Record summary
Rfam assigns this 84-nucleotide RNA sequence from Echeneis naucrates to the family "Small nucleolar RNA SNORD11B". Gene Ontology terms of the family: nucleolus and RNA processing. Its Rfam clan is "SNORD11 clan". It scores 76 bits against the family's covariance model.
RNA sequence: UGGCUGUAGUGAUGAUGAUGACAGUUGUCUUUGUCCUGAAAAGAUCUAUGUGGGCUUUUAGUCACUACCUCAUCUGAACAGUCA
Dot-bracket structure: .((((((......................................................................)))))).
Notes: The literature on the family includes a 2006 paper in Nucleic Acids Res by Yang et al., "snoSeeker: an advanced computational package for screening of guide and orphan snoRNA genes in the human genome". It is annotated as a C/D-box small nucleolar RNA. Rfam 15.1 lists 733 matches to the family in 632 species.